Rfam assigns this 45-nucleotide sequence to the family "Acido-Lenti-1 RNA". The family's consensus secondary structure is taken from published work. The family has 87 seed sequences and 2,607 matches in Rfam 15.1. It is annotated as a small RNA.
[Rfam]
RNA sequence: CCCAGGGCGUUGCCCUGGGCUGUCAUCCGACGCCCUUACAGGGCU
Numbered sequence: 001c002c003c004a005g006g007g008c009g010u011u012g013c014c015c016u017g018g019g020c021u022g023u024c025a026u027c028c029g030a031c032g033c034c035c036u037u038a039c040a041g042g043g044c045u
Stems, first nucleotide, its partner, number of pairs: 001019008032044005
Dot-bracket structure: ((((((((...))))))))............(((((...))))).